The family of this 74-nucleotide sequence from Streptomyces sp. W1SF4 is "tRNA".
The family has 954 seed sequences and 5,335,975 matches in Rfam 15.1.
Pairs were carried over by alignment from the consensus structure, which is taken from published work.
The match comes from Rfam's covariance-model search (72 bits).
RNA sequence: AGGGGUAUAGCUCAGCUGGUCAGAGCGCUGGUCUCCAAAACCAGAUGUCGUAGGUUCGAAUCCUGCUACCCCUG
Numbered sequence: 001a002g003g004g005g006u007a008u009a010g011c012u013c014a015g016c017u018g019g020u021c022a023g024a025g026c027g028c029u030g031g032u033c034u035c036c037a038a039a040a041c042c043a044g045a046u047g048u049c050g051u052a053g054g055u056u057c058g059a060a061u062c063c064u065g066c067u068a069c070c071c072c073u074g
Stems, first nucleotide, its partner, number of pairs: 001073007010026004028044005050066005
Its family is annotated with triplet codon-amino acid adaptor activity in the Gene Ontology.